[Rfam]
RNA sequence: UUUAGUGAUAGAGGUGCGGUAUUUAAGAGUACUGAUGUUGAGGAAAGCACGAUGAGGCAUCAAGAAAGGAAAUAUCGCCGAAGCAUAUAGCUGAUGCUUUAAGGCUAUAUAGCUGGUUUUGCAUAGAAUAUAUGUAAGACUGUCACAAAGCAAUUUGUGGAGAGCUAUCAUUCAA
Numbered sequence: 001u002u003u004a005g006u007g008a009u010a011g012a013g014g015u016g017c018g019g020u021a022u023u024u025a026a027g028a029g030u031a032c033u034g035a036u037g038u039u040g041a042g043g044a045a046a047g048c049a050c051g052a053u054g055a056g057g058c059a060u061c062a063a064g065a066a067a068g069g070a071a072a073u074a075u076c077g078c079c080g081a082a083g084c085a086u087a088u089a090g091c092u093g094a095u096g097c098u099u100u101a102a103g104g105c106u107a108u109a110u111a112g113c114u115g116g117u118u119u120u121g122c123a124u125a126g127a128a129u130a131u132a133u134g135u136a137a138g139a140c141u142g143u144c145a146c147a148a149a150g151c152a153a154u155u156u157g158u159g160g161a162g163a164g165c166u167a168u169c170a171u172u173c174a175a
Base pairs, nucleotide, nucleotide: 006170007169008168009167010166011165016078017077018076019075020074021073022072023071024070033062034061035060036059037058038057039056082114083113084112085110086109087108088107089106090105091104092103115141116140117139118138119137120136121135122134123133124132125131143160144159145158146157147156148155149154

Rfam assigns this 175-nucleotide RNA from Clostridium thermopalmarium to the family "Lysine riboswitch aptamer".
Rfam links the family to the GO term lysine biosynthetic process.
NCBI's taxonomy places the organism under Bacteria, Bacillati, Clostridia, Clostridium, Clostridium thermopalmarium.
Riboswitches are metabolite binding domains within certain messenger RNAs that serve as precision sensors for their corresponding targets.
The base pairs follow the family's consensus structure, which is taken from published work.